[Rfam]
RNA sequence: GAAUUUAAGGGUGAAGGAGUUCACCUUUAACCGCUGUCCCCUUCUUUAGCCGGACAGAUGAUGACUCCUGACAGGGA
Numbered sequence: 001g002a003a004u005u006u007a008a009g010g011g012u013g014a015a016g017g018a019g020u021u022c023a024c025c026u027u028u029a030a031c032c033g034c035u036g037u038c039c040c041c042u043u044c045u046u047u048a049g050c051c052g053g054a055c056a057g058a059u060g061a062u063g064a065c066u067c068c069u070g071a072c073a074g075g076g077a
Stems, first nucleotide, its partner, number of pairs: 010025004016068006034057006
Fluoride riboswitch aptamer (crcB RNA motif): a 77-nucleotide RNA sequence from Alloacidobacterium dinghuense.
A search with the family's covariance model found it, with a score of 40 bits.
The source organism's lineage runs through Bacteria, Pseudomonadati, Terriglobia, Acidobacteriaceae and Alloacidobacterium.